S-element: a 69-nucleotide RNA sequence from Ensifer fredii. The family has 29 seed sequences and 231 matches in Rfam 15.1. This family represents a group of S-elements from p42d and related plasmids. The S-element has multiple functions and is believed to act as a negative regulator of repC transcription, be required for efficient replication and act as a translational enhancer of repC. Rfam links the family to the GO terms mRNA transcription and translation regulator activity. Rfam's curators put it in the seed alignment.

RNA sequence: AGUCAAGAGUCUUUGGCACCGGAACGGGUGAGCGGACGUCUUUUGCCUGAGGAUAGGUGAAAGAAGAUG
Numbered sequence: 001a002g003u004c005a006a007g008a009g010u011c012u013u014u015g016g017c018a019c020c021g022g023a024a025c026g027g028g029u030g031a032g033c034g035g036a037c038g039u040c041u042u043u044u045g046c047c048u049g050a051g052g053a054u055a056g057g058u059g060a061a062a063g064a065a066g067a068u069g
Base pairs, nucleotide, nucleotide: 010064011063012062013061014060017059018058019057020056023054025052030048032046033045034044035043036042
Pairs were carried over by alignment from the consensus structure, which is taken from published work.